[Rfam]
RNA sequence: CCACAAUCUGGUGAUGGGGUACCACCACGAACCGCCGAAGCCGUUCCGCUUUGCGCUGAUGACUCCUACGUUUAC
Numbered sequence: 001c002c003a004c005a006a007u008c009u010g011g012u013g014a015u016g017g018g019g020u021a022c023c024a025c026c027a028c029g030a031a032c033c034g035c036c037g038a039a040g041c042c043g044u045u046c047c048g049c050u051u052u053g054c055g056c057u058g059a060u061g062a063c064u065c066c067u068a069c070g071u072u073u074a075c
Base pairs, nucleotide, nucleotide: 010026011025012024013023016066017065018064019063020062034056035055

Fluoride riboswitch aptamer (crcB RNA motif): a 75-nucleotide sequence from Hymenobacter radioresistens. Pairs were carried over by alignment from the consensus structure, which is taken from published work. Lineage of the source: Bacteria > Pseudomonadati > Bacteroidota > Cytophagales > Hymenobacter.